Shown here is a 153-nucleotide RNA from Amborella trichopoda, a member of the family "MIR8565 microRNA precursor family". The match comes from Rfam's covariance-model search (140 bits). The base pairs follow the family's consensus structure, which was predicted with RNAalifold.
RNA sequence: CCCCCACCCAUGUGUGUAGGACCCCAAAGGAUCACCAUUAAAUUUGGCAUGGAUCUCUAGAAAAGUUAUCACAUGGGUGUGAGACUUGAUUUUUUUAGAGAUUAUUGUCAAAUUUAAUGGUUAUCCUUGAGAUCCUACACACAUGGGUGGGGU
Numbered sequence: 001c002c003c004c005c006a007c008c009c010a011u012g013u014g015u016g017u018a019g020g021a022c023c024c025c026a027a028a029g030g031a032u033c034a035c036c037a038u039u040a041a042a043u044u045u046g047g048c049a050u051g052g053a054u055c056u057c058u059a060g061a062a063a064a065g066u067u068a069u070c071a072c073a074u075g076g077g078u079g080u081g082a083g084a085c086u087u088g089a090u091u092u093u094u095u096u097a098g099a100g101a102u103u104a105u106u107g108u109c110a111a112a113u114u115u116a117a118u119g120g121u122u123a124u125c126c127u128u129g130a131g132a133u134c135c136u137a138c139a140c141a142c143a144u145g146g147g148u149g150g151g152g153u
Base pairs, nucleotide, nucleotide: 002152003151004150005149006148007147008146009145010144011143012142013141015139016138017137018136019135020134021133023131025129026128027127030125031124032123034121035120036119037118038117039116040115041114042113043112044111045110046109047108048107049106052103053102054101055100056099057098058097059096060095061094062093063092064091065090066089067088068087069082070081071080072079073078